[Rfam]
RNA: Plastid-rpl16 group II-D1 intron
RNA sequence: AAGAGCUUCGAGCCAAUAAAGACUAAGAAGGUUGGCUCAAAAUCAAAU
Numbered sequence: 001a002a003g004a005g006c007u008u009c010g011a012g013c014c015a016a017u018a019a020a021g022a023c024u025a026a027g028a029a030g031g032u033u034g035g036c037u038c039a040a041a042a043u044c045a046a047a048u
Stems, first nucleotide, its partner, number of pairs: 007041002010038008